Shown here is a 139-nucleotide sequence from Schizosaccharomyces cryophilus, a member of the family "small nucleolar RNA snR92". The literature on the family includes a 2005 paper in J Biol Chem by Li et al., "Identification and functional analysis of 20 Box H/ACA small nucleolar RNAs (snoRNAs) from Schizosaccharomyces pombe". The organism belongs to Schizosaccharomyces cryophilus, within Eukaryota. Its family is annotated with RNA processing and nucleolus in the Gene Ontology.
RNA sequence: AAACCAAGUUUUGCCUACUGUUAUUUCGCUUAUAUAAAACGAAUAACGGUUUACUACAUGCUUGGAAGAAAAAUAGUCGACUCCACCCUGGAUAUUCUUUAUUUAUGAGUUUUCAGGACUAAAUCACCGACUAAAAUCU
Numbered sequence: 001a002a003a004c005c006a007a008g009u010u011u012u013g014c015c016u017a018c019u020g021u022u023a024u025u026u027c028g029c030u031u032a033u034a035u036a037a038a039a040c041g042a043a044u045a046a047c048g049g050u051u052u053a054c055u056a057c058a059u060g061c062u063u064g065g066a067a068g069a070a071a072a073a074u075a076g077u078c079g080a081c082u083c084c085a086c087c088c089u090g091g092a093u094a095u096u097c098u099u100u101a102u103u104u105a106u107g108a109g110u111u112u113u114c115a116g117g118a119c120u121a122a123a124u125c126a127c128c129g130a131c132u133a134a135a136a137u138c139u
Base pairs, nucleotide, nucleotide: 004065005064006063007062009060011058013054017050018049019048020047022045023044024043025042026041030038031037075132076131077130078129079128087117088116089115090114091113092112096108097107